[Rfam]
RNA: Plastid-psbM 3UTR RNA
RNA sequence: AACUUGAUAGUAUGGUUGAAAGAUUCAUAUUUUUUUCCUACAAUACUAUAUAUAUCUAUUAUUGGAAUGUAUAAAGAUACAAGC
Numbered sequence: 001a002a003c004u005u006g007a008u009a010g011u012a013u014g015g016u017u018g019a020a021a022g023a024u025u026c027a028u029a030u031u032u033u034u035u036u037c038c039u040a041c042a043a044u045a046c047u048a049u050a051u052a053u054a055u056c057u058a059u060u061a062u063u064g065g066a067a068u069g070u071a072u073a074a075a076g077a078u079a080c081a082a083g084c
Base pairs, nucleotide, nucleotide: 007049008048009047010046011045012044013043015041016040018038019036020035021034022033023032